[Rfam]
This 160-nucleotide sequence from Cronobacter sakazakii belongs to the Rfam family "Enterobacterial sRNA STnc430". The source organism's lineage runs through Bacteria, Pseudomonadati, Gammaproteobacteria, Enterobacteriaceae and Cronobacter sakazakii.
RNA sequence: AAAAUGGAAAUCCGGUUUAUCUGAAACAUUUCAGGCGUGCAGAAGACGGGCACGGCGAUUUUCGGAUUAACCUCAAGAUUAAAGAGUAGCGGGACGCGGGCGAACAACAAGAUUUAUCUGAGAAAAAAAUGCCGGCAUAUUGCCGGCAUCAUUACGCUUA
Numbered sequence: 001a002a003a004a005u006g007g008a009a010a011u012c013c014g015g016u017u018u019a020u021c022u023g024a025a026a027c028a029u030u031u032c033a034g035g036c037g038u039g040c041a042g043a044a045g046a047c048g049g050g051c052a053c054g055g056c057g058a059u060u061u062u063c064g065g066a067u068u069a070a071c072c073u074c075a076a077g078a079u080u081a082a083a084g085a086g087u088a089g090c091g092g093g094a095c096g097c098g099g100g101c102g103a104a105c106a107a108c109a110a111g112a113u114u115u116a117u118c119u120g121a122g123a124a125a126a127a128a129a130u131g132c133c134g135g136c137a138u139a140u141u142g143c144c145g146g147c148a149u150c151a152u153u154a155c156g157c158u159u160a
Base pairs, nucleotide, nucleotide: 011104013102014101020066021065022064024062025061026060028059029058030057037053038052039051040050110119111118129149130148131147132146133145134144135143136142137141
Dot-bracket structure: ..........(.((.....(((.(((.(((......((((.........))))...)))))).)))..................................)).).....((......)).........(((((((((...)))))))))...........

The match comes from Rfam's covariance-model search (52 bits).